The record is a 73-nucleotide RNA from Plasticicumulans acidivorans, which matches "SAH (S-adenosyl-L-homocysteine) riboswitch aptamer" in Rfam. It scores 66 bits against the family's covariance model. The literature on the family includes a 2008 paper in Mol Cell by Wang et al., "Riboswitches that sense S-adenosylhomocysteine and activate genes involved in coenzyme recycling". Pairs were carried over by alignment from the consensus structure, which is taken from published work. The organism belongs to Plasticicumulans, within Bacteria.
[Rfam]
RNA sequence: CUCCUGAGGAGCGCUGCAACGGGUCCGGUCCCGCCAGGCUCAGGGUUUUCCGUUUCAACGGCGCUCGUUCGAC
Numbered sequence: 001c002u003c004c005u006g007a008g009g010a011g012c013g014c015u016g017c018a019a020c021g022g023g024u025c026c027g028g029u030c031c032c033g034c035c036a037g038g039c040u041c042a043g044g045g046u047u048u049u050c051c052g053u054u055u056c057a058a059c060g061g062c063g064c065u066c067g068u069u070c071g072a073c
Stems, first nucleotide, its partner, number of pairs: 002045006020033004